[Rfam]
Shown here is a 114-nucleotide RNA from Dactylellina haptotyla, a member of the family "U5 spliceosomal RNA". Rfam describes the family as follows. U5 RNA is a component of both types of known spliceosome.

RNA sequence: CUAGGAGUUUCUUUGCCUAAAAACAUGACAUUAUUGCCUUUUACCAUAACGUCCCAUGGGCAAGAAAAAGGACUCCACUAGCUUUAAUCUUUGGAUUUACCCAUUGAGCGUGAU
Numbered sequence: 001c002u003a004g005g006a007g008u009u010u011c012u013u014u015g016c017c018u019a020a021a022a023a024c025a026u027g028a029c030a031u032u033a034u035u036g037c038c039u040u041u042u043a044c045c046a047u048a049a050c051g052u053c054c055c056a057u058g059g060g061c062a063a064g065a066a067a068a069a070g071g072a073c074u075c076c077a078c079u080a081g082c083u084u085u086a087a088u089c090u091u092u093g094g095a096u097u098u099a100c101c102c103a104u105u106g107a108g109c110g111u112g113a114u
Stems, first nucleotide, its partner, number of pairs: 004076003008067003012064008027053003031049004095114001097113004102108001